[Rfam]
Rfam assigns this 99-nucleotide RNA sequence from Podarcis muralis to the family "Vault RNA".
By type it is a non-coding RNA gene.
The family's consensus secondary structure is taken from published work.
The source organism's lineage runs through Eukaryota, Chordata, Dipnotetrapodomorpha, Sauria and Podarcis.
It scores 54 bits against the family's covariance model.

RNA sequence: GGGCCAGCUUAGCGUAGUGGUUACUUCGAAUCUAUCUUUGCAGAAUCACCAAUUGCUUAACGGCAGUUCGAUACUCUGCGGGCACUGUCUGGCUUUUAA
Numbered sequence: 001g002g003g004c005c006a007g008c009u010u011a012g013c014g015u016a017g018u019g020g021u022u023a024c025u026u027c028g029a030a031u032c033u034a035u036c037u038u039u040g041c042a043g044a045a046u047c048a049c050c051a052a053u054u055g056c057u058u059a060a061c062g063g064c065a066g067u068u069c070g071a072u073a074c075u076c077u078g079c080g081g082g083c084a085c086u087g088u089c090u091g092g093c094u095u096u097u098a099a
Base pairs, nucleotide, nucleotide: 002094003093004092005091006090007089012083013082015080017079018078019077020076026071027070028069029068